[Rfam]
RNA: mir-6012 microRNA precursor family
Organism: Aphidius gifuensis
RNA sequence: AGCAGGGUUAGCAGGCUGAUAUUGUCGAACGGGAUGUGAAAUAAAAAAAUCAUUUCGGCGAUGAGAUCAGCCUGUCGAACUCGGC
Numbered sequence: 001a002g003c004a005g006g007g008u009u010a011g012c013a014g015g016c017u018g019a020u021a022u023u024g025u026c027g028a029a030c031g032g033g034a035u036g037u038g039a040a041a042u043a044a045a046a047a048a049a050u051c052a053u054u055u056c057g058g059c060g061a062u063g064a065g066a067u068c069a070g071c072c073u074g075u076c077g078a079a080c081u082c083g084g085c
Stems, first nucleotide, its partner, number of pairs: 002085002005082004011075010022064005033056002036053003